[Rfam]
Rfam assigns this 73-nucleotide RNA sequence from Halothece sp. PCC 7418 to the family "tRNA". The match comes from Rfam's covariance-model search (63 bits). Rfam classes the family as a transfer RNA. The family's consensus secondary structure is taken from published work. The literature on the family includes a 1997 paper in Nucleic Acids Res by Lowe and Eddy, "tRNAscan-SE: a program for improved detection of transfer RNA genes in genomic sequence". Lineage of the source: Bacteria > Cyanophyceae > Oscillatoriophycideae > Halothecacae > Halothece.
RNA sequence: GGGCGCGUAGCUCAGUGGAUAGAGCACCAGAUUCCGGUUCUGGGUGUCGGAGGUUCAAAUCCUCCCGUGCUCG
Numbered sequence: 001g002g003g004c005g006c007g008u009a010g011c012u013c014a015g016u017g018g019a020u021a022g023a024g025c026a027c028c029a030g031a032u033u034c035c036g037g038u039u040c041u042g043g044g045u046g047u048c049g050g051a052g053g054u055u056c057a058a059a060u061c062c063u064c065c066c067g068u069g070c071u072c073g
Stems, first nucleotide, its partner, number of pairs: 001072007010025004027043005049065005